[Rfam]
RNA: Bacterial RNase P class A
Organism: Aquirhabdus parva
RNA sequence: AAAGUGAGCUGGACGGUCGCCGCUGAUGAGAUCUUUGGAUUAAAGCAGGGGAGGAAAGUCCGGGCUUCGUAGGGCAAAGUGCCAGGUAACGCCUGGGCGGUGUGAGCCGACGGAUAGUGCAGCAGAGAGUAGACCGCCGAACGGCCCGUAAGGGUGCGUGGUAAGGGUGAAACGGUGCGGUAAGAGCGCACCACGAGUCUGGUAACAGACCGGUACGGUAAACCCCACUUGAAGCAAGACCAAAUAGGAAUCCAUGGCGUGGCCCGCGUCGGAUUCGGGUAGGUUGCUUGAGCGUAUUGGUGACGAUACGCCUAGAGGAAUGAUCGUUCACGACAGAACCCGGCUUAUAGGCUCACUUUGCAC
Dot-bracket structure: ((((((((((((((((((.((.(((.(................).))).))....[[[.[[[[[((((...[[[[.((((((((((.....)))))(((((....)))).)((...((((.............(((((...((((((....)))).)).)))..)).......((((((.......))))))(((.(((((....))))))).)...))..)))))))))))))...((((......((((((..(((((.]]]]))))))))))).....))))......((((((((....))))))))..........)))))))..........]]]]]]]].).))))))))))....
Numbered sequence: 001a002a003a004g005u006g007a008g009c010u011g012g013a014c015g016g017u018c019g020c021c022g023c024u025g026a027u028g029a030g031a032u033c034u035u036u037g038g039a040u041u042a043a044a045g046c047a048g049g050g051g052a053g054g055a056a057a058g059u060c061c062g063g064g065c066u067u068c069g070u071a072g073g074g075c076a077a078a079g080u081g082c083c084a085g086g087u088a089a090c091g092c093c094u095g096g097g098c099g100g101u102g103u104g105a106g107c108c109g110a111c112g113g114a115u116a117g118u119g120c121a122g123c124a125g126a127g128a129g130u131a132g133a134c135c136g137c138c139g140a141a142c143g144g145c146c147c148g149u150a151a152g153g154g155u156g157c158g159u160g161g162u163a164a165g166g167g168u169g170a171a172a173c174g175g176u177g178c179g180g181u182a183a184g185a186g187c188g189c190a191c192c193a194c195g196a197g198u199c200u201g202g203u204a205a206c207a208g209a210c211c212g213g214u215a216c217g218g219u220a221a222a223c224c225c226c227a228c229u230u231g232a233a234g235c236a237a238g239a240c241c242a243a244a245u246a247g248g249a250a251u252c253c254a255u256g257g258c259g260u261g262g263c264c265c266g267c268g269u270c271g272g273a274u275u276c277g278g279g280u281a282g283g284u285u286g287c288u289u290g291a292g293c294g295u296a297u298u299g300g301u302g303a304c305g306a307u308a309c310g311c312c313u314a315g316a317g318g319a320a321u322g323a324u325c326g327u328u329c330a331c332g333a334c335a336g337a338a339c340c341c342g343g344c345u346u347a348u349a350g351g352c353u354c355a356c357u358u359u360g361c362a363c
Stems, first nucleotide, its partner, number of pairs: 001359010011348001012328007020051002023048003027044001056346003060343005065234004072265004077230005082096005097111001098109004112225002117223002119219002134166002136162003142158002144155004174192006193214001194212002197210005238285004248276006256270005292311008